[Rfam]
The family of this 115-nucleotide RNA sequence from Salirhabdus euzebyi is "epsC RNA".
RNA sequence: AGGUAAUAUCUCCUUACCUUUAUCAAUGGGGGUACUCGGCUAUUCUGUGGGUAAAGGAUUCUUUACCUUAGCGCUCGUCCGCAGUGGAAUGGUGUGAGGGUGGGUUAAAUGCCCA
Numbered sequence: 001a002g003g004u005a006a007u008a009u010c011u012c013c014u015u016a017c018c019u020u021u022a023u024c025a026a027u028g029g030g031g032g033u034a035c036u037c038g039g040c041u042a043u044u045c046u047g048u049g050g051g052u053a054a055a056g057g058a059u060u061c062u063u064u065a066c067c068u069u070a071g072c073g074c075u076c077g078u079c080c081g082c083a084g085u086g087g088a089a090u091g092g093u094g095u096g097a098g099g100g101u102g103g104g105u106u107a108a109a110u111g112c113c114c115a
Stems, first nucleotide, its partner, number of pairs: 001019004007034007035098004039093008049068008071082002073079001101115005

The match comes from Rfam's covariance-model search (104 bits). Taxonomically the source falls in Salirhabdus (Bacteria, Bacillota, Caryophanales, Bacillaceae). It is annotated as a cis-regulatory element.